[Rfam]
RNA sequence: ACACGGUAGAUCUUUCUUUCUCGUAUAUAUUCAGGGAUAGGGCCUGAACGUUUCUACCCGGUCACCGUAAAUGGCUGGACUACGAGGAUAUGGGUCACCGGU
Numbered sequence: 001a002c003a004c005g006g007u008a009g010a011u012c013u014u015u016c017u018u019u020c021u022c023g024u025a026u027a028u029a030u031u032c033a034g035g036g037a038u039a040g041g042g043c044c045u046g047a048a049c050g051u052u053u054c055u056a057c058c059c060g061g062u063c064a065c066c067g068u069a070a071a072u073g074g075c076u077g078g079a080c081u082a083c084g085a086g087g088a089u090a091u092g093g094g095u096c097a098c099c100g101g102u
Stems, first nucleotide, its partner, number of pairs: 018088008030048006058078007
A member of the RNA family "Purine riboswitch aptamer" from Melghirimyces algeriensis, 102 nucleotides long. The organism belongs to Melghirimyces, within Bacteria. Pairs were carried over by alignment from the consensus structure, which is taken from published work.